The record is an 86-nucleotide RNA from Amycolatopsis sp. CA-230715, which matches "ZMP/ZTP riboswitch aptamer (pfl RNA motif)" in Rfam. Taxonomically the source falls in Amycolatopsis (Bacteria, Actinomycetes, Pseudonocardiales, Pseudonocardiaceae). The family's consensus secondary structure is taken from published work. It scores 64 bits against the family's covariance model.
RNA sequence: UCUCCGGGCCGUGACUGGCGCAUCGGGUGGAGCACCACCGGGAAGCGGCCCCGAAGACGACUCCGCCGCGCGCCUGGGCGACUACG
Numbered sequence: 001u002c003u004c005c006g007g008g009c010c011g012u013g014a015c016u017g018g019c020g021c022a023u024c025g026g027g028u029g030g031a032g033c034a035c036c037a038c039c040g041g042g043a044a045g046c047g048g049c050c051c052c053g054a055a056g057a058c059g060a061c062u063c064c065g066c067c068g069c070g071c072g073c074c075u076g077g078g079c080g081a082c083u084a085c086g
Stems, first nucleotide, its partner, number of pairs: 003054002006051007015042002017074005027038004064080004